[Rfam]
RNA sequence: GCUAUUCUGUGAUGAGGCCUGGAAUGUGCUGGACACAGCACCCGAAUAACAUUGCUGAAGCAUUUCCUGUUGCCUUCCUUCUGAGAACAGC
Numbered sequence: 001g002c003u004a005u006u007c008u009g010u011g012a013u014g015a016g017g018c019c020u021g022g023a024a025u026g027u028g029c030u031g032g033a034c035a036c037a038g039c040a041c042c043c044g045a046a047u048a049a050c051a052u053u054g055c056u057g058a059a060g061c062a063u064u065u066c067c068u069g070u071u072g073c074c075u076u077c078c079u080u081c082u083g084a085g086a087a088c089a090g091c
Stems, first nucleotide, its partner, number of pairs: 001091003005087001
The record is a 91-nucleotide RNA from Neotoma lepida, which matches "Small nucleolar RNA U83B" in Rfam. U83B belongs to the C/D family of snoRNAs. U83B like U83A has no documented RNA target and they share the same host gene with the C/D box snoRNA U43 (RPL3). By type it is a C/D-box small nucleolar RNA. On this family, see Jady and Kiss, Nucleic Acids Res 2000: "Characterisation of the U83 and U84 small nucleolar RNAs: two novel 2'-O-ribose methylation guide RNAs that lack complementarities to ribosomal RNAs". Taxonomically the source falls in Neotoma (Eukaryota, Euteleostomi, Euarchontoglires, Muroidea).